A member of the RNA family "RAGATH-18 RNA" from Bacillus cereus, 67 nucleotides long.
The sequence is in the family's curated seed alignment.
Pairs were carried over by alignment from the consensus structure, which is taken from published work.
The family's RNA type in Rfam is small RNA.
RNA sequence: CCUGUGGAGUGUUACAGUAAACUGUAGUAGCGAGUUAGUGGCGAGGCAGGACACAGAGAAGCAGGAA
Numbered sequence: 001c002c003u004g005u006g007g008a009g010u011g012u013u014a015c016a017g018u019a020a021a022c023u024g025u026a027g028u029a030g031c032g033a034g035u036u037a038g039u040g041g042c043g044a045g046g047c048a049g050g051a052c053a054c055a056g057a058g059a060a061g062c063a064g065g066a067a
Stems, first nucleotide, its partner, number of pairs: 001065005009054005022049003030042002